Shown here is a 155-nucleotide RNA sequence from Geodermatophilus ruber, a member of the family "c-di-AMP riboswitch aptamer (ydaO/yuaA leader)".
[Rfam]
RNA sequence: CGUCGGACACCGCCGAACUGGGCGUCGGCCCUCUGCCGACGCCGGACCGGGGACCCACCGCAGCACUGGGGUGAAGCGCAGCCUUUUUCAGGCUGCGCCGGGCGACCUCCCCGCCCGAACCCGUCAGCUAACUCGGUAGGCGGACGGAAGGAACA
Numbered sequence: 001c002g003u004c005g006g007a008c009a010c011c012g013c014c015g016a017a018c019u020g021g022g023c024g025u026c027g028g029c030c031c032u033c034u035g036c037c038g039a040c041g042c043c044g045g046a047c048c049g050g051g052g053a054c055c056c057a058c059c060g061c062a063g064c065a066c067u068g069g070g071g072u073g074a075a076g077c078g079c080a081g082c083c084u085u086u087u088u089c090a091g092g093c094u095g096c097g098c099c100g101g102g103c104g105a106c107c108u109c110c111c112c113g114c115c116c117g118a119a120c121c122c123g124u125c126a127g128c129u130a131a132c133u134c135g136g137u138a139g140g141c142g143g144a145c146g147g148a149a150g151g152a153a154c155a
Base pairs, nucleotide, nucleotide: 011142012141013140014139018045019044020043046137047136048135049134050133051132056068057067069122070121071120077097078096079095080094081093082092100116101115102114103113